[Rfam]
Rfam assigns this 134-nucleotide RNA from Saccharomonospora viridis to the family "SAM riboswitch aptamer (S box leader)".
A search with the family's covariance model found it, with a score of 79 bits.
RNA sequence: AGCUCAUCCAGAGGGGCAGAGGGACCGGCCCGAUGAAGCCCCGGCAACCGGCGUCAGCCUGUCAUCUCGGAUUCCGCGAGGUAGCUGACGACAUCGGUGCCAAUUCCGUCCCGCGUCAGCGGGGAAGAUGAGGA
Numbered sequence: 001a002g003c004u005c006a007u008c009c010a011g012a013g014g015g016g017c018a019g020a021g022g023g024a025c026c027g028g029c030c031c032g033a034u035g036a037a038g039c040c041c042c043g044g045c046a047a048c049c050g051g052c053g054u055c056a057g058c059c060u061g062u063c064a065u066c067u068c069g070g071a072u073u074c075c076g077c078g079a080g081g082u083a084g085c086u087g088a089c090g091a092c093a094u095c096g097g098u099g100c101c102a103a104u105u106c107c108g109u110c111c112c113g114c115g116u117c118a119g120c121g122g123g124g125a126a127g128a129u130g131a132g133g134a
Base pairs, nucleotide, nucleotide: 003132004131005130006129007128008127013042014041015040016039017038021031022030023029026108027107028106043101044100045099046098048097049096050095051094105126110123111122112121113120114119